[Rfam]
RNA sequence: UGGGUCGGCCAGACGGUCGCGCGCCGCGUAAGCGGUCCGAGGAACGUCCGGGCUCCAUAGAGCAGGAUGGUGGAUAACGUCCACCCGGGGUAACCCGCGAGCUAGUGCAACAGAAAGCAAACCGCCCGCAAGGGUAAGGGUGAAAGGGUGGGGUAAGAGCCCACCGGGCGUCCGGUGACGGACGUUGCAAGGUAAACCUCAUCCGGAGCAAGGCCAACAGGGAACGUCGACGCUGCUCGCCGAGUUCCCGGGUGUGCUGCUAGAGCGGCGCGGUAACGCGUCGCCGAGAUAGAUGGCCGUCACGACUCUGGUCGGACAGAACCCGGCGUAUCGGUCGGCCCACUCA
Numbered sequence: 001u002g003g004g005u006c007g008g009c010c011a012g013a014c015g016g017u018c019g020c021g022c023g024c025c026g027c028g029u030a031a032g033c034g035g036u037c038c039g040a041g042g043a044a045c046g047u048c049c050g051g052g053c054u055c056c057a058u059a060g061a062g063c064a065g066g067a068u069g070g071u072g073g074a075u076a077a078c079g080u081c082c083a084c085c086c087g088g089g090g091u092a093a094c095c096c097g098c099g100a101g102c103u104a105g106u107g108c109a110a111c112a113g114a115a116a117g118c119a120a121a122c123c124g125c126c127c128g129c130a131a132g133g134g135u136a137a138g139g140g141u142g143a144a145a146g147g148g149u150g151g152g153g154u155a156a157g158a159g160c161c162c163a164c165c166g167g168g169c170g171u172c173c174g175g176u177g178a179c180g181g182a183c184g185u186u187g188c189a190a191g192g193u194a195a196a197c198c199u200c201a202u203c204c205g206g207a208g209c210a211a212g213g214c215c216a217a218c219a220g221g222g223a224a225c226g227u228c229g230a231c232g233c234u235g236c237u238c239g240c241c242g243a244g245u246u247c248c249c250g251g252g253u254g255u256g257c258u259g260c261u262a263g264a265g266c267g268g269c270g271c272g273g274u275a276a277c278g279c280g281u282c283g284c285c286g287a288g289a290u291a292g293a294u295g296g297c298c299g300u301c302a303c304g305a306c307u308c309u310g311g312u313c314g315g316a317c318a319g320a321a322c323c324c325g326g327c328g329u330a331u332c333g334g335u336c337g338g339c340c341c342a343c344u345c346a
Base pairs, nucleotide, nucleotide: 001342002341003340004339005338006337007336008335009334010333011331012301013300014299015298016297017296018295020039021038023036024035025034026033027032044329045328046327048326049325050324051323052322053208054207055206056205060238061237062236063235065204066203067202068201069200070084071083072082073081074080085099086097087096088095089094100199101198105197106196107193108192122139123138124135125134126133127132147165148164149163150162151161152160166188167186168185169184170183171182172181173180174179212258213257214256220249221248222247223246224245225244232240233239265284266283267282268281269280270279271278272277
Shown here is a 346-nucleotide RNA sequence from Gulosibacter chungangensis, a member of the family "Bacterial RNase P class A". It scores 286 bits against the family's covariance model. By type it is a ribozyme.